About this RNA: A member of the RNA family "Group II catalytic intron D1-D4-1" from Tumebacillus flagellatus, 87 nucleotides long. Gene Ontology term of the family: Group II intron splicing. A search with the family's covariance model found it, with a score of 68 bits. Lineage of the source: Bacteria > Bacillati > Caryophanales > Alicyclobacillaceae > Tumebacillus. From the family's description: Group II introns are found in rRNA, tRNA and mRNA of organelles in fungi, plants and protists, and also in mRNA in bacteria.

[Rfam]
RNA sequence: UAACUCGCAUCAUGAGGUGCGACUGAACCGGCAGGAGUCAGCAGAGGUCAUAGUACCUGCAAAGGAGACGUCCGUGUAGGGAAGGAC
Dot-bracket structure: ((..(((((((....))))))).))............((....)).(((......((((((.............))))))....)))
Numbered sequence: 001u002a003a004c005u006c007g008c009a010u011c012a013u014g015a016g017g018u019g020c021g022a023c024u025g026a027a028c029c030g031g032c033a034g035g036a037g038u039c040a041g042c043a044g045a046g047g048u049c050a051u052a053g054u055a056c057c058u059g060c061a062a063a064g065g066a067g068a069c070g071u072c073c074g075u076g077u078a079g080g081g082a083a084g085g086a087c
Stems, first nucleotide, its partner, number of pairs: 001025002005022007038045002047087003056080006